Rfam assigns this 61-nucleotide RNA sequence from Hordeum vulgare to the family "Plastid-psbN 5UTR RNA". The family's consensus secondary structure was predicted with LocARNA. Rfam classes the family as a cis-regulatory element.
[Rfam]
RNA sequence: UGCGACCCCCAUAUAAGGAGUAGUUCCCCAACCCGGGGCGACUAUCCCAUAUUCGGAAUUC
Numbered sequence: 001u002g003c004g005a006c007c008c009c010c011a012u013a014u015a016a017g018g019a020g021u022a023g024u025u026c027c028c029c030a031a032c033c034c035g036g037g038g039c040g041a042c043u044a045u046c047c048c049a050u051a052u053u054c055g056g057a058a059u060u061c
Stems, first nucleotide, its partner, number of pairs: 017045001019043003023039005